[Rfam]
RNA sequence: AAGGUUUGCAAAAGGAUUCCCGAUAGGAUUCACUUUGAAUAGUGGAGAAGCCUUGUAACCGAAAAAACAAAGGGGGAUAUCUAAUG
Numbered sequence: 001a002a003g004g005u006u007u008g009c010a011a012a013a014g015g016a017u018u019c020c021c022g023a024u025a026g027g028a029u030u031c032a033c034u035u036u037g038a039a040u041a042g043u044g045g046a047g048a049a050g051c052c053u054u055g056u057a058a059c060c061g062a063a064a065a066a067a068c069a070a071a072g073g074g075g076g077a078u079a080u081c082u083a084a085u086g
Stems, first nucleotide, its partner, number of pairs: 018077004025053003029046005059073002